[Rfam]
RNA sequence: GCCGCGGCAGCGCCGAGUCCGCCAUCGCGCGGAGCCGGGGACCCACCUUUCGGCGGCACGGCCCUCCCCUGGGCCCGCCCCGACCGGGGUGAAUCGGCGCGCCCUCUCUUCGAGCUUCUCGAACCGGGCGCACCGUAGGGCAACUUCCACGCCCGAACCCGUCAGCUAACCCGGUAGGCGUCUGGAAGAAGGAGAU
Numbered sequence: 001g002c003c004g005c006g007g008c009a010g011c012g013c014c015g016a017g018u019c020c021g022c023c024a025u026c027g028c029g030c031g032g033a034g035c036c037g038g039g040g041a042c043c044c045a046c047c048u049u050u051c052g053g054c055g056g057c058a059c060g061g062c063c064c065u066c067c068c069c070u071g072g073g074c075c076c077g078c079c080c081c082g083a084c085c086g087g088g089g090u091g092a093a094u095c096g097g098c099g100c101g102c103c104c105u106c107u108c109u110u111c112g113a114g115c116u117u118c119u120c121g122a123a124c125c126g127g128g129c130g131c132a133c134c135g136u137a138g139g140g141c142a143a144c145u146u147c148c149a150c151g152c153c154c155g156a157a158c159c160c161g162u163c164a165g166c167u168a169a170c171c172c173g174g175u176a177g178g179c180g181u182c183u184g185g186a187a188g189a190a191g192g193a194g195a196u
Base pairs, nucleotide, nucleotide: 011180012179013178014177018033019032020031021030022029034175035174036173037172038171039170044086087160088159089158095135096134097133138154139153140152141151
The record is a 196-nucleotide RNA sequence from Actinomadura rudentiformis, which matches "c-di-AMP riboswitch aptamer (ydaO/yuaA leader)" in Rfam. NCBI's taxonomy places the organism under Bacteria, Actinomycetota, Streptosporangiales, Thermomonosporaceae, Actinomadura. It scores 63 bits against the family's covariance model.